A member of the RNA family "mir-592 microRNA precursor family" from Gorilla gorilla, 88 nucleotides long. The source organism's lineage runs through Eukaryota, Deuterostomia, Sarcopterygii, Theria and Gorilla. Rfam links the family to the GO terms miRNA-mediated post-transcriptional gene silencing and RISC complex. The base pairs follow the family's consensus structure, which was predicted with RNAalifold.

RNA sequence: UAUUAUGCCAUGACAUUGUGUCAAUAUGCGAUGAUGUGUUGUGAUGGCACAGCGUCAUCACGUGGUGACGCAACAUCAUGACGUAAGA
Numbered sequence: 001u002a003u004u005a006u007g008c009c010a011u012g013a014c015a016u017u018g019u020g021u022c023a024a025u026a027u028g029c030g031a032u033g034a035u036g037u038g039u040u041g042u043g044a045u046g047g048c049a050c051a052g053c054g055u056c057a058u059c060a061c062g063u064g065g066u067g068a069c070g071c072a073a074c075a076u077c078a079u080g081a082c083g084u085a086a087g088a
Stems, first nucleotide, its partner, number of pairs: 003086005009080005016073008025064004030059007037051003041048002